[Rfam]
RNA sequence: CUUCUUGGCUGAGUUAGUGAUCGGCUGAGACAAUUUACUGAUAUUUUGGAGAUAUUCAUGUCACUAAGUACUGAAGCUAAAGCAAAAAUCCUGGCUGAGUUUGGCCGUGGUGAA
Numbered sequence: 001c002u003u004c005u006u007g008g009c010u011g012a013g014u015u016a017g018u019g020a021u022c023g024g025c026u027g028a029g030a031c032a033a034u035u036u037a038c039u040g041a042u043a044u045u046u047u048g049g050a051g052a053u054a055u056u057c058a059u060g061u062c063a064c065u066a067a068g069u070a071c072u073g074a075a076g077c078u079a080a081a082g083c084a085a086a087a088a089u090c091c092u093g094g095c096u097g098a099g100u101u102u103g104g105c106c107g108u109g110g111u112g113a114a
Stems, first nucleotide, its partner, number of pairs: 007026006045068005051062001
Dot-bracket structure: ......((((((........))))))..................(((((.(..........).)))))..............................................
This 114-nucleotide sequence from Shewanella amazonensis belongs to the Rfam family "Ribosomal S15 leader". Rfam classes the family as a cis-regulatory leader. The source organism's lineage runs through Bacteria, Gammaproteobacteria, Alteromonadales, Shewanellaceae and Shewanella amazonensis. The E. coli Ribosomal S15 gene 5' UTR can form two alternative structures. One that is a series of three hairpins, The other includes a pseudoknot. This structure causes translational regulation of the S15 protein. The alignment of this family contains only the final two hairpins which are conserved in other species, and also includes the complete region that forms the alternate structures.